The family of this 216-nucleotide RNA is "RT-2 RNA".
RNA sequence: AUGGGUCAAAAGAAGUAGGAAACGAACCGGACCUUUUGUGAAAGGAGAGAUACUUCCCGGGCCAAAACCCGAAACCGCACUCUGUGGCCCUUGCACGGACGCUGCUUGCAUGGCAGGGCUAUUGUGCUACCCCUGUUUCAUGUGCCGGGGCUACGCGGUUUAGCCGCACACCUACACCACAACCGCACGGAGGCGCGAAUAAAAUUUAUGACCAGU
Numbered sequence: 001a002u003g004g005g006u007c008a009a010a011a012g013a014a015g016u017a018g019g020a021a022a023c024g025a026a027c028c029g030g031a032c033c034u035u036u037u038g039u040g041a042a043a044g045g046a047g048a049g050a051u052a053c054u055u056c057c058c059g060g061g062c063c064a065a066a067a068c069c070c071g072a073a074a075c076c077g078c079a080c081u082c083u084g085u086g087g088c089c090c091u092u093g094c095a096c097g098g099a100c101g102c103u104g105c106u107u108g109c110a111u112g113g114c115a116g117g118g119c120u121a122u123u124g125u126g127c128u129a130c131c132c133c134u135g136u137u138u139c140a141u142g143u144g145c146c147g148g149g150g151c152u153a154c155g156c157g158g159u160u161u162a163g164c165c166g167c168a169c170a171c172c173u174a175c176a177c178c179a180c181a182a183c184c185g186c187a188c189g190g191a192g193g194c195g196c197g198a199a200u201a202a203a204a205u206u207u208a209u210g211a212c213c214a215g216u
Stems, first nucleotide, its partner, number of pairs: 004033004059070003077196002080192005087151005093145004101109002112137007155186005161181001162173002
Dot-bracket structure: ...((((......................)))).........................(((......)))......((.(((((..(((((.((((....((.....))..(((((((............)))))))....)))).)))))...(((((.(((........)).......)))))).)))))..))....................